[Rfam]
RNA sequence: CAAGCUUGGUGGUGGCACUUCCCGAAUUAGCGGGUUGUGGUUCUGUGCGCAUACGUAAAUAAGUACAGUUUCGAAAACCCGCUCAACGAGCGGGUUUUUUUAU
Numbered sequence: 001c002a003a004g005c006u007u008g009g010u011g012g013u014g015g016c017a018c019u020u021c022c023c024g025a026a027u028u029a030g031c032g033g034g035u036u037g038u039g040g041u042u043c044u045g046u047g048c049g050c051a052u053a054c055g056u057a058a059a060u061a062a063g064u065a066c067a068g069u070u071u072c073g074a075a076a077a078c079c080c081g082c083u084c085a086a087c088g089a090g091c092g093g094g095u096u097u098u099u100u101u102a103u
Stems, first nucleotide, its partner, number of pairs: 009046003016039003021034004076096007083088001